This 141-nucleotide sequence from Streptomyces montanisoli belongs to the Rfam family "Streptomyces-metK RNA". The match comes from Rfam's covariance-model search (60 bits). The family's consensus secondary structure is taken from published work. The family's RNA type in Rfam is small RNA.
[Rfam]
RNA sequence: GCGAGAUGCCUGGACUCCUGGCGCGGGGUGCCGGAUAAACUGACGGCGGAGCGUGGCCGGGCGCAGCCUCCAGCCGCGCUACCAGUAGAAAGUGAUCAGCUGAUCGGCUGAUCAGUCAGCAGCCGCUGCAACCUCAGGGAG
Numbered sequence: 001g002c003g004a005g006a007u008g009c010c011u012g013g014a015c016u017c018c019u020g021g022c023g024c025g026g027g028g029u030g031c032c033g034g035a036u037a038a039a040c041u042g043a044c045g046g047c048g049g050a051g052c053g054u055g056g057c058c059g060g061g062c063g064c065a066g067c068c069u070c071c072a073g074c075c076g077c078g079c080u081a082c083c084a085g086u087a088g089a090a091a092g093u094g095a096u097c098a099g100c101u102g103a104u105c106g107g108c109u110g111a112u113c114a115g116u117c118a119g120c121a122g123c124c125g126c127u128g129c130a131a132c133c134u135c136a137g138g139g140a141g
Stems, first nucleotide, its partner, number of pairs: 050104001052102002056100001058099001060097002117128004